RNA sequence: CUUGUCAGGUAAGAGAACUUGCCUGAACGUUUUGUAAAAAGCGUGAAUAACAGUUGUUUUCAACCAUUCAAACAUGGCUAUAUGCUGGAAACUCUCUAAAAUUCCAACGGGCAACCGGUUGGACUAAGGAGACAAUCAGCAGGGAAGUCGUAAUUGACCCCUCAGAGACUACACGCCGUGCUCCGUUCGCCUUUGCGAACGGAUGAAGAUAUAGUCCGAUCUCUAUGGCGACGUAGAG
Numbered sequence: 001c002u003u004g005u006c007a008g009g010u011a012a013g014a015g016a017a018c019u020u021g022c023c024u025g026a027a028c029g030u031u032u033u034g035u036a037a038a039a040a041g042c043g044u045g046a047a048u049a050a051c052a053g054u055u056g057u058u059u060u061c062a063a064c065c066a067u068u069c070a071a072a073c074a075u076g077g078c079u080a081u082a083u084g085c086u087g088g089a090a091a092c093u094c095u096c097u098a099a100a101a102u103u104c105c106a107a108c109g110g111g112c113a114a115c116c117g118g119u120u121g122g123a124c125u126a127a128g129g130a131g132a133c134a135a136u137c138a139g140c141a142g143g144g145a146a147g148u149c150g151u152a153a154u155u156g157a158c159c160c161c162u163c164a165g166a167g168a169c170u171a172c173a174c175g176c177c178g179u180g181c182u183c184c185g186u187u188c189g190c191c192u193u194u195g196c197g198a199a200c201g202g203a204u205g206a207a208g209a210u211a212u213a214g215u216c217c218g219a220u221c222u223c224u225a226u227g228g229c230g231a232c233g234u235a236g237a238g
Stems, first nucleotide, its partner, number of pairs: 005026009073180004078175001083141006093132005142161002165217001167216005182203009223236005
Dot-bracket structure: ....(((((((((....)))))))))..............................................[[[[.[....((((((....(((((..............................)))))...))))))((................))...(.(((((...].]]]].(((((((((....)))))))))........)))))).....(((((....)))))..